U7 small nuclear RNA: a 61-nucleotide RNA sequence from Theropithecus gelada.
Rfam's curators write: Animal histone pre-mRNAs are spliced by a different mechanism than nuclear pre-mRNAs and self-splicing introns. This processing involves the U7 snRNP, which contains only one RNA species: U7. The 5' end of U7 RNA is thought to base-pair to a conserved spacer element downstream of the cleavage site in histone pre-mRNA. This family contains a number of annotated U7 pseudogenes.
A search with the family's covariance model found it, with a score of 48 bits.
RNA sequence: GAGUGCUACAGCCCUUUUAAAAUUUGUCUAGCAAGUUUUCCAGUUUUAACUGGAACCUCCA
Numbered sequence: 001g002a003g004u005g006c007u008a009c010a011g012c013c014c015u016u017u018u019a020a021a022a023u024u025u026g027u028c029u030a031g032c033a034a035g036u037u038u039u040c041c042a043g044u045u046u047u048a049a050c051u052g053g054a055a056c057c058u059c060c061a
Base pairs, nucleotide, nucleotide: 034058035057037055039054040053041052042051043050044049